[Rfam]
Shown here is a 158-nucleotide sequence from Candidatus Symbiopectobacterium sp. Dall1.0, a member of the family "tp2". By type it is a small RNA. For this family Rfam cites "Computational identification of noncoding RNAs in E. coli by comparative genomics" (Rivas et al., Curr Biol, 2001). The family's consensus secondary structure was predicted with RNAalifold.
RNA sequence: UGUAUUCCUUAUCUGUUUCUAAUCAGUUAAUUUUCUGGAGCCUGUCUUUCUGUACUCUGUCAUUGUCGUCAUAUUACUGACGGCUGCCGUAUCAUCGACAGUUGUCAAAGCACAGUAAGACAGGUCCAAUCUCGUCAUUUACGCGUUAAACGCCCCAA
Numbered sequence: 001u002g003u004a005u006u007c008c009u010u011a012u013c014u015g016u017u018u019c020u021a022a023u024c025a026g027u028u029a030a031u032u033u034u035c036u037g038g039a040g041c042c043u044g045u046c047u048u049u050c051u052g053u054a055c056u057c058u059g060u061c062a063u064u065g066u067c068g069u070c071a072u073a074u075u076a077c078u079g080a081c082g083g084c085u086g087c088c089g090u091a092u093c094a095u096c097g098a099c100a101g102u103u104g105u106c107a108a109a110g111c112a113c114a115g116u117a118a119g120a121c122a123g124g125u126c127c128a129a130u131c132u133c134g135u136c137a138u139u140u141a142c143g144c145g146u147u148a149a150a151c152g153c154c155c156c157a158a
Stems, first nucleotide, its partner, number of pairs: 001143004024134001025132002027129001038127001040125007050115004055110002058107002